Source information
Ribosomal protein L10 leader: a 131-nucleotide RNA sequence from Weissella koreensis. The family's consensus secondary structure was predicted with CMfinder. NCBI's taxonomy places the organism under Bacteria, Bacillota, Lactobacillales, Lactobacillaceae, Weissella.
[Rfam]
RNA sequence: UGAAUUAAAUAGAUUCUACCUAAGACGCCGGAGGCCUUUUGGCCUUAAUAUAUCCUGCCGAGGAAGUGAAAAUGAGCGAAAGCAAAUUGGAACCCCCGGCACUAUGGUGUUGGGGGUUUCUUAGUUAGGAU
Numbered sequence: 001u002g003a004a005u006u007a008a009a010u011a012g013a014u015u016c017u018a019c020c021u022a023a024g025a026c027g028c029c030g031g032a033g034g035c036c037u038u039u040u041g042g043c044c045u046u047a048a049u050a051u052a053u054c055c056u057g058c059c060g061a062g063g064a065a066g067u068g069a070a071a072a073u074g075a076g077c078g079a080a081a082g083c084a085a086a087u088u089g090g091a092a093c094c095c096c097c098g099g100c101a102c103u104a105u106g107g108u109g110u111u112g113g114g115g116g117u118u119u120c121u122u123a124g125u126u127a128g129g130a131u
Stems, first nucleotide, its partner, number of pairs: 027058002030055003033044003093116010
Gene Ontology term of the family: regulation of gene expression.